[Rfam]
RNA sequence: CCUGUGGAGAGUUAUAUCAAAUGUUAUUAGGGGGAACGUGCCGAGGACAGACGCAAUGAAGCAGGAA
Numbered sequence: 001c002c003u004g005u006g007g008a009g010a011g012u013u014a015u016a017u018c019a020a021a022u023g024u025u026a027u028u029a030g031g032g033g034g035a036a037c038g039u040g041c042c043g044a045g046g047a048c049a050g051a052c053g054c055a056a057u058g059a060a061g062c063a064g065g066a067a
Base pairs, nucleotide, nucleotide: 001065002064003063004062005061009054011052012051013050022049023048024047030042031041